[Rfam]
RNA: Mammalian CPEB3 ribozyme
Organism: Alligator mississippiensis
RNA sequence: GGUGUAGAACAGGCCGUAGCAGAAGCACUUGCGGGGCGGCCAUGUCAGAUUCCAACAGAACUGUAAAUUCUGCU
Dot-bracket structure: ...........[[[[..(((((((((.........))]]]]....(((.((......)).)))....)))))))
Numbered sequence: 001g002g003u004g005u006a007g008a009a010c011a012g013g014c015c016g017u018a019g020c021a022g023a024a025g026c027a028c029u030u031g032c033g034g035g036g037c038g039g040c041c042a043u044g045u046c047a048g049a050u051u052c053c054a055a056c057a058g059a060a061c062u063g064u065a066a067a068u069u070c071u072g073c074u
Stems, first nucleotide, its partner, number of pairs: 012041004018074007025037002046063003050059002